Record summary
A member of the RNA family "U4 spliceosomal RNA" from Sciurus carolinensis, 141 nucleotides long. The family's consensus secondary structure is taken from published work. Taxonomically the source falls in Sciurus (Eukaryota, Euteleostomi, Theria, Sciuridae). U4 small nuclear RNA (U4 snRNA) is a component of the major U2-dependent spliceosome. By type it is a spliceosomal small nuclear RNA. For this family Rfam cites "The uRNA database" (Zwieb, Nucleic Acids Res, 1997). It scores 80 bits against the family's covariance model.
[Rfam]
RNA sequence: AGCAUAGUGAAGUGGCAGUGUCCUAGCCAACAAGUUUUAUCUGAGGCACGAUUAUUGCUAAUUGAAAACUUUUCCCAGCACCAAACCAUGACAACUUGCAAUAUAGUCAGCAUUGGCAAUUUUUGAUAGUCUCUAUGGAGA
Numbered sequence: 001a002g003c004a005u006a007g008u009g010a011a012g013u014g015g016c017a018g019u020g021u022c023c024u025a026g027c028c029a030a031c032a033a034g035u036u037u038u039a040u041c042u043g044a045g046g047c048a049c050g051a052u053u054a055u056u057g058c059u060a061a062u063u064g065a066a067a068a069c070u071u072u073u074c075c076c077a078g079c080a081c082c083a084a085a086c087c088a089u090g091a092c093a094a095c096u097u098g099c100a101a102u103a104u105a106g107u108c109a110g111c112a113u114u115g116g117c118a119a120u121u122u123u124u125g126a127u128a129g130u131c132u133c134u135a136u137g138g139a140g141a
Stems, first nucleotide, its partner, number of pairs: 020052003024048001026047003033042002086116002088113003094107003130141004